Eukaryotic small subunit ribosomal RNA: a 155-nucleotide part of an RNA from Helcion dunkeri. Its Rfam clan is "SSU clan". The family has 90 seed sequences and 75,755 matches in Rfam 15.1. The literature on the family includes a 2001 paper in Science by Yusupov et al., "Crystal structure of the ribosome at 5.5 A resolution". The sequence is in the family's curated seed alignment.

[Rfam]
RNA sequence: CACCGCCCGUCGCUACCUCCGAUAGAAUGGCUAAGCGAGGCCGUUGGACUGGGCCCGUCUUCGGACGGGACCGGAAAGGCGUUCGAGCUUAAUCAUUUAGAGGAAGUAAAAGUCGUAACAAGGUUUCCGUAGGUGAACCUGCGGAAGGAUCAUUA
Numbered sequence: 001c002a003c004c005g006c007c008c009g010u011c012g013c014u015a016c017c018u019c020c021g022a023u024a025g026a027a028u029g030g031c032u033a034a035g036c037g038a039g040g041c042c043g044u045u046g047g048a049c050u051g052g053g054c055c056c057g058u059c060u061u062c063g064g065a066c067g068g069g070a071c072c073g074g075a076a077a078g079g080c081g082u083u084c085g086a087g088c089u090u091a092a093u094c095a096u097u098u099a100g101a102g103g104a105a106g107u108a109a110a111a112g113u114c115g116u117a118a119c120a121a122g123g124u125u126u127c128c129g130u131a132g133g134u135g136a137a138c139c140u141g142c143g144g145a146a147g148g149a150u151c152a153u154u155a
Base pairs, nucleotide, nucleotide: 003122005119008115009114011112014108015107016106018104019103020102023099025098026097027096028095029094030093032091033090034089035088036087039084040083042081043080044079045078049074050073051072052071054069055068056067057066058065059064124147125146126145127144128143129142130141131140132139133138